[Rfam]
RNA sequence: UACUCUUUGAUAGACAUACCAAAGACAGUAGCUGUGAUGUACAUCACUUAAUCCGCUACCGAGGAACAUGUGAGACAAACACACAUUUCUACGUCUUUGGCAGUGCGAGAACCAAAGACGUUUUUUAAUUCUUAA
Number, nucleotide and partner (000 for none) at each position: 001u000002a000003c000004u000005c000006u000007u000008u000009g000010a000011u000012a000013g000014a000015c000016a000017u000018a000019c000020c000021a000022a000023a000024g000025a000026c000027a000028g059029u058030a057031g056032c055033u000034g047035u046036g045037a000038u000039g000040u000041a000042c000043a000044u000045c036046a035047c034048u000049u000050a000051a000052u000053c000054c000055g032056c031057u030058a029059c028060c000061g000062a000063g000064g000065a000066a000067c000068a000069u000070g000071u000072g000073a000074g000075a000076c000077a000078a000079a000080c000081a000082c000083a000084c000085a000086u000087u000088u000089c000090u000091a000092c120093g119094u118095c117096u116097u115098u114099g113100g112101c000102a000103g000104u000105g000106c000107g000108a000109g000110a000111a000112c100113c099114a098115a097116a096117g095118a094119c093120g092121u000122u000123u000124u000125u000126u000127a000128a000129u000130u000131c000132u000133u000134a000135a000
RNA: Ribosomal protein L10 leader